Rfam assigns this 70-nucleotide sequence to the family "Hepatitis C virus stem-loop VII".

RNA sequence: UAAGCUUAUCGCUCAGGGAGGUAAAGCCAAAAUCUGUGGCAUAUACCUCUUUAACUGGGCGGUAAAAACC
Numbered sequence: 001u002a003a004g005c006u007u008a009u010c011g012c013u014c015a016g017g018g019a020g021g022u023a024a025a026g027c028c029a030a031a032a033u034c035u036g037u038g039g040c041a042u043a044u045a046c047c048u049c050u051u052u053a054a055c056u057g058g059g060c061g062g063u064a065a066a067a068a069c070c
Base pairs, nucleotide, nucleotide: 006065007064008063009062010061011060012059013058014057015056016055017050018049019048020047021046026040027039028038029037

The literature on the family includes a 2016 paper in Mol Cell by Pirakitikulr et al., "The Coding Region of the HCV Genome Contains a Network of Regulatory RNA Structures". By type it is a cis-regulatory element. It is one of the family's seed sequences.